[Rfam]
RNA sequence: CACCCUCUGUUUACAUUGCCUGUUGGACUUAGUUGUUACUGGUUAUUCAAGUGGGGCAAAGGAGAUAUCUUUUCAAAACUCAGGCAAACUGAGUGUCUUGUGUCCUGUCAGAGAAAACAUAU
Numbered sequence: 001c002a003c004c005c006u007c008u009g010u011u012u013a014c015a016u017u018g019c020c021u022g023u024u025g026g027a028c029u030u031a032g033u034u035g036u037u038a039c040u041g042g043u044u045a046u047u048c049a050a051g052u053g054g055g056g057c058a059a060a061g062g063a064g065a066u067a068u069c070u071u072u073u074c075a076a077a078a079c080u081c082a083g084g085c086a087a088a089c090u091g092a093g094u095g096u097c098u099u100g101u102g103u104c105c106u107g108u109c110a111g112a113g114a115a116a117a118c119a120u121a122u
Stems, first nucleotide, its partner, number of pairs: 032057003040049003068115001070113004081100001082098005

Overview: The record is a 122-nucleotide RNA sequence from Carlito syrichta, which matches "Small nucleolar RNA SNORA27" in Rfam. Clan: SNORA27 clan. About the family: ACA27 is a member of the H/ACA class of snoRNA that guide the sites of modification of uridines to pseudouridines. The source organism's lineage runs through Eukaryota, Metazoa, Chordata, Boreoeutheria and Carlito. A search with the family's covariance model found it, with a score of 86 bits.